RNA sequence: UGGUAGAUGCACCCUGACAAAUUGAGCCUCUUAGCCUACGGCUGGGAGGUUUUUUAU
Numbered sequence: 001u002g003g004u005a006g007a008u009g010c011a012c013c014c015u016g017a018c019a020a021a022u023u024g025a026g027c028c029u030c031u032u033a034g035c036c037u038a039c040g041g042c043u044g045g046g047a048g049g050u051u052u053u054u055u056a057u
Stems, first nucleotide, its partner, number of pairs: 002013003027049010

Shown here is a 57-nucleotide sequence from Romeriopsis navalis, a member of the family "Nitrogen stress-induced RNA 1". By type it is a small RNA. It scores 46 bits against the family's covariance model. NCBI's taxonomy places the organism under Bacteria, Cyanobacteriota, Cyanophyceae, Leptolyngbyales, Romeriopsis navalis.